[Rfam]
RNA sequence: AAAAAGGGUCGGAUGGCUAUUUAUGCCACGCUCAGCCUAAGAUAAGGGGUGAGUGCUGUAUGGCAAAAUCAAGACAUAUGGCCGACAUUAUUUCUGGAACAACCCAUGGGUUGGCUCGCUCGGCCGACCCUCCAA
Numbered sequence: 001a002a003a004a005a006g007g008g009u010c011g012g013a014u015g016g017c018u019a020u021u022u023a024u025g026c027c028a029c030g031c032u033c034a035g036c037c038u039a040a041g042a043u044a045a046g047g048g049g050u051g052a053g054u055g056c057u058g059u060a061u062g063g064c065a066a067a068a069u070c071a072a073g074a075c076a077u078a079u080g081g082c083c084g085a086c087a088u089u090a091u092u093u094c095u096g097g098a099a100c101a102a103c104c105c106a107u108g109g110g111u112u113g114g115c116u117c118g119c120u121c122g123g124c125c126g127a128c129c130c131u132c133c134a135a
Base pairs, nucleotide, nucleotide: 008086009085010084011083012082014028015027016026017025029055030054031053032052033051034050036048037047038046056081057080058079059078060077061076062075106131109129110128111127112126113125114124115123116122
Dot-bracket structure: .......(((((.((((.......))))((((((.(((.......))).))))))(((((((............))))))))))))...................(..((((((((.....)))))))).)....